RNA sequence: GAAUAAUUUAAUAGUUUUCCUUGUAUAAUCGUGGGGAUAUGGCCCACAAGUUUCUACCAAGUUACCGUAAAUGACUUGACUACAAGUGAUCGGAAUCUCCAA
Dot-bracket structure: .................(.((((((...(.(((((.......))))).)........(((((((.......)))))))..)))))).)..............

The record is a 102-nucleotide RNA sequence from Bacillus salinus, which matches "Purine riboswitch aptamer" in Rfam. A search with the family's covariance model found it, with a score of 88 bits. Rfam describes the family as follows. Riboswitches are metabolite binding domains within certain messenger RNAs that serve as precision sensors for their corresponding targets.